[Rfam]
RNA sequence: CCCUUAUCUUUAUUUUAGGUUUUAAGUUGGUCCCUUAUCUUUAUUUUAGGUUUCAAGUUGAUCCCUUCUGACAAUUUUUUAACUAUUUCCGUUAAAUUUGGACACGUGGCAAACUAAUUUGGACACAUGGCACACUUGGACAGAUAACACGUGUCCAAAUUUAACGGUAACAGUAAAAAAAUUGAUAGAAGGGACCAACUUGAAACCUAAAAAAAAGAUAAGGGACCAACUUGAAACUUUUAAAAAGAUAAGGGA
Dot-bracket structure: .(((((((................(((.(((.((((((((((.((.(((.............................................................................................................................................................))).)).)))))))))).))).)))...............)))))))..
This 255-nucleotide RNA from Trifolium subterraneum belongs to the Rfam family "MIR2655 microRNA precursor family". Its family is annotated with RISC complex and miRNA-mediated post-transcriptional gene silencing in the Gene Ontology. The family's consensus secondary structure was predicted with RNAalifold.